[Rfam]
RNA sequence: GUCAACGAUCCCCACGCAUGAAUGCGGGGGCUUGUCCCUUGUGUUGAUGCCGUCUUCGUUGUCCAGCCGAGGUACCAGAGCCCGCAGGCAAGGCGCUGAUUGGUACCAGCGUUGCGCUCGUCACGACACCUCGUUGUGCUUCCUCAGCAGCGAGCGCUGUCGCUCAGCGUUAAAAGCACCCGUCGGGGUACGGGUCGGUGCGUUGAGCCGAACAAGCGAGAGCAACACCGGCGAGGGGAGCGUCCU
Numbered sequence: 001g002u003c004a005a006c007g008a009u010c011c012c013c014a015c016g017c018a019u020g021a022a023u024g025c026g027g028g029g030g031c032u033u034g035u036c037c038c039u040u041g042u043g044u045u046g047a048u049g050c051c052g053u054c055u056u057c058g059u060u061g062u063c064c065a066g067c068c069g070a071g072g073u074a075c076c077a078g079a080g081c082c083c084g085c086a087g088g089c090a091a092g093g094c095g096c097u098g099a100u101u102g103g104u105a106c107c108a109g110c111g112u113u114g115c116g117c118u119c120g121u122c123a124c125g126a127c128a129c130c131u132c133g134u135u136g137u138g139c140u141u142c143c144u145c146a147g148c149a150g151c152g153a154g155c156g157c158u159g160u161c162g163c164u165c166a167g168c169g170u171u172a173a174a175a176g177c178a179c180c181c182g183u184c185g186g187g188g189u190a191c192g193g194g195u196c197g198g199u200g201c202g203u204u205g206a207g208c209c210g211a212a213c214a215a216g217c218g219a220g221a222g223c224a225a226c227a228c229c230g231g232c233g234a235g236g237g238g239a240g241c242g243u244c245c246u
Stems, first nucleotide, its partner, number of pairs: 001063001003061006010030002012027002017024002066232004071107008111226005117220005126160002130154008140240006162208009174199001178195006
RNA: HNH endonuclease-associated RNA and ORF (HEARO) RNA